[Rfam]
RNA sequence: UACAAGCUACUCUGUACGUAAUAAUAAAAAGUUUUAACCUUUAUGCUGUAAUAGGGAGUUUUAAUUAUAGUUGGAAUGUAAUGCCUCCUCGAUUGAGGACUACAUGAACACUUUUGCGAACACCCACUUUGAGGAGUGUGGUUUAAAACUUUCUUAUUUUAAGUUACGGCAAUGGUGGCUUAUGA
Numbered sequence: 001u002a003c004a005a006g007c008u009a010c011u012c013u014g015u016a017c018g019u020a021a022u023a024a025u026a027a028a029a030a031g032u033u034u035u036a037a038c039c040u041u042u043a044u045g046c047u048g049u050a051a052u053a054g055g056g057a058g059u060u061u062u063a064a065u066u067a068u069a070g071u072u073g074g075a076a077u078g079u080a081a082u083g084c085c086u087c088c089u090c091g092a093u094u095g096a097g098g099a100c101u102a103c104a105u106g107a108a109c110a111c112u113u114u115u116g117c118g119a120a121c122a123c124c125c126a127c128u129u130u131g132a133g134g135a136g137u138g139u140g141g142u143u144u145a146a147a148a149c150u151u152u153c154u155u156a157u158u159u160u161a162a163g164u165u166a167c168g169g170c171a172a173u174g175g176u177g178g179c180u181u182a183u184g185a
Base pairs, nucleotide, nucleotide: 002183004181005180006179007178008177009176010175011174013171014170015169017168018167019166030150031149032148033147035145036144037143038141039140054125055124056123058121059120060119061118067114069112070111071110078103079102084098085097086096087095

This 185-nucleotide sequence from Sutcliffiella cohnii belongs to the Rfam family "6S / SsrS RNA". Taxonomically the source falls in Sutcliffiella (Bacteria, Bacillati, Bacilli, Bacillaceae). About the family: E. coli 6S RNA was the first non coding RNA to be sequenced, but its function was unknown until recently.